This 86-nucleotide sequence from Drosophila pseudoobscura belongs to the Rfam family "mir-2567 microRNA precursor family". Rfam 15.1 lists 15 matches to the family in 3 species. It is one of the family's seed sequences. Lineage of the source: Eukaryota > Endopterygota > Eremoneura > Schizophora > Sophophora.

[Rfam]
RNA sequence: UUUCAAGUUUCUUACCAGUGUGGAUUUGUAAAACGUUGCGUUUUUAAACUCGUAUUGCAUUUCCAAUCUGGCAAGUUAGCUUGAAC
Number, nucleotide and partner (000 for none) at each position: 001u000002u085003u084004c083005a000006a081007g080008u079009u000010u000011c000012u074013u073014a000015c071016c070017a069018g068019u000020g000021u065022g064023g063024a062025u000026u000027u059028g058029u000030a056031a055032a000033a053034c052035g051036u000037u000038g000039c000040g000041u000042u000043u000044u000045u000046a000047a000048a000049c000050u000051c035052g034053u033054a000055u031056u030057g000058c028059a027060u000061u000062u024063c023064c022065a021066a000067u000068c018069u017070g016071g015072c000073a013074a012075g000076u000077u000078a000079g008080c007081u006082u000083g004084a003085a002086c000